[Rfam]
Shown here is a 130-nucleotide RNA from Otus sunia, a member of the family "Small Cajal body specific RNA 23". By type it is a small Cajal body RNA.
RNA sequence: GUGCUCACAAGAACACCUGUCCUGCCCCGUGGCCGUGAUGGGUUCUGGGAAGAUGUGAGCUAGAGCAUGAGUAUUGCUUUGGGAGUGUCACAUUCCAGCCACAUGAGACACUACAGUUUUCAAUACAACA
Numbered sequence: 001g002u003g004c005u006c007a008c009a010a011g012a013a014c015a016c017c018u019g020u021c022c023u024g025c026c027c028c029g030u031g032g033c034c035g036u037g038a039u040g041g042g043u044u045c046u047g048g049g050a051a052g053a054u055g056u057g058a059g060c061u062a063g064a065g066c067a068u069g070a071g072u073a074u075u076g077c078u079u080u081g082g083g084a085g086u087g088u089c090a091c092a093u094u095c096c097a098g099c100c101a102c103a104u105g106a107g108a109c110a111c112u113a114c115a116g117u118u119u120u121c122a123a124u125a126c127a128a129c130a
Stems, first nucleotide, its partner, number of pairs: 003060006012044003017040001019039003025032002071126001073124004079116003084112006091105001093101001

The match comes from Rfam's covariance-model search (62 bits).
The family's consensus secondary structure was predicted with RNAfold.
The source organism's lineage runs through Eukaryota, Neognathae, Telluraves, Strigidae and Otus.